The record is a 59-nucleotide RNA from Streptomyces sp. AS58, which matches "msiK RNA" in Rfam. It is annotated as a cis-regulatory element. The match comes from Rfam's covariance-model search (61 bits).
[Rfam]
RNA sequence: ACCACUUCCUUCCUACAACGGAUCGUCCGGCACGUUCCUGCCGGUAGAAGGGGCUCAUU
Numbered sequence: 001a002c003c004a005c006u007u008c009c010u011u012c013c014u015a016c017a018a019c020g021g022a023u024c025g026u027c028c029g030g031c032a033c034g035u036u037c038c039u040g041c042c043g044g045u046a047g048a049a050g051g052g053g054c055u056c057a058u059u
Stems, first nucleotide, its partner, number of pairs: 009051003013047003027044006